[Rfam]
RNA sequence: GUCGAGCUUAGUAAUGUGGGCUUGUAACCCAAAUGGGGGCAUUAAUGUGGUGGAAUGUUGGGCUGUACCAGAUGGUUGGGCUUGGUGGGCUAAUUUCUGACUUGCCCUAUCCAAGCUUAGAGUUGGAUCAUGUGGCCCAAUUGAAGAAAUGGACUACUUGAUUCGUAAAGUGGGGCGGAAUGCGUGAGGCUGGUUUCACAGAGCAACGAUAAGUUUCCGCUCUAAGCGGUGGAAGGAUAACGAGUCGGUGUUCUCUGAGUCCAGUAAUGCCUGAUGGGCUGCUCUAAUUAAACCACCACUUUU
Numbered sequence: 001g002u003c004g005a006g007c008u009u010a011g012u013a014a015u016g017u018g019g020g021c022u023u024g025u026a027a028c029c030c031a032a033a034u035g036g037g038g039g040c041a042u043u044a045a046u047g048u049g050g051u052g053g054a055a056u057g058u059u060g061g062g063c064u065g066u067a068c069c070a071g072a073u074g075g076u077u078g079g080g081c082u083u084g085g086u087g088g089g090c091u092a093a094u095u096u097c098u099g100a101c102u103u104g105c106c107c108u109a110u111c112c113a114a115g116c117u118u119a120g121a122g123u124u125g126g127a128u129c130a131u132g133u134g135g136c137c138c139a140a141u142u143g144a145a146g147a148a149a150u151g152g153a154c155u156a157c158u159u160g161a162u163u164c165g166u167a168a169a170g171u172g173g174g175g176c177g178g179a180a181u182g183c184g185u186g187a188g189g190c191u192g193g194u195u196u197c198a199c200a201g202a203g204c205a206a207c208g209a210u211a212a213g214u215u216u217c218c219g220c221u222c223u224a225a226g227c228g229g230u231g232g233a234a235g236g237a238u239a240a241c242g243a244g245u246c247g248g249u250g251u252u253c254u255c256u257g258a259g260u261c262c263a264g265u266a267a268u269g270c271c272u273g274a275u276g277g278g279c280u281g282c283u284c285u286a287a288u289u290a291a292a293c294c295a296c297c298a299c300u301u302u303u
Stems, first nucleotide, its partner, number of pairs: 001040003004023007028037003044302002047299007056290002058287003061283003065279002068277003074271003078262008087253003091250002097248008106236002110233004115227009125164006132157004137152003141148002172217005183208003190201003
RNA: Plant signal recognition particle RNA
Organism: Solanum lycopersicum